[Rfam]
Bacteroidete tryptophan peptide leader RNA: a 120-nucleotide sequence from Mesonia phycicola.
The source organism's lineage runs through Bacteria, Pseudomonadati, Flavobacteriia, Flavobacteriales and Mesonia.
RNA sequence: UCAUACCUAUAUUUGAGGCAAUGAAAAAUUUAACAGUACAUACUUGGUGGUGGAAUAACUUACGAAAAACGUCGUGAGCUAGCACCGCAUUGUAUAUAAUUAUAUCCAAAAAGGCUUGUC
Numbered sequence: 001u002c003a004u005a006c007c008u009a010u011a012u013u014u015g016a017g018g019c020a021a022u023g024a025a026a027a028a029u030u031u032a033a034c035a036g037u038a039c040a041u042a043c044u045u046g047g048u049g050g051u052g053g054a055a056u057a058a059c060u061u062a063c064g065a066a067a068a069a070c071g072u073c074g075u076g077a078g079c080u081a082g083c084a085c086c087g088c089a090u091u092g093u094a095u096a097u098a099a100u101u102a103u104a105u106c107c108a109a110a111a112a113g114g115c116u117u118g119u120c
Base pairs, nucleotide, nucleotide: 037098038097040095041094042093043092047088049086050085051084052083056081057080059078060077061076062072063071064070